MIR2275 microRNA precursor family: an 89-nucleotide sequence from Sorghum bicolor. Gene Ontology terms of the family: RISC complex and miRNA-mediated post-transcriptional gene silencing.
RNA sequence: AAGCUGAAGGUGAGUGUUGGCGGGAACCAAAUCUCCAGCUGCAUGCACAGCACAAGAUUUGGUUUCCUCCAAUGUCUCAUCUUCAACUG
Numbered sequence: 001a002a003g004c005u006g007a008a009g010g011u012g013a014g015u016g017u018u019g020g021c022g023g024g025a026a027c028c029a030a031a032u033c034u035c036c037a038g039c040u041g042c043a044u045g046c047a048c049a050g051c052a053c054a055a056g057a058u059u060u061g062g063u064u065u066c067c068u069c070c071a072a073u074g075u076c077u078c079a080u081c082u083u084c085a086a087c088u089g
Stems, first nucleotide, its partner, number of pairs: 005085004011079004016073005023066008032057002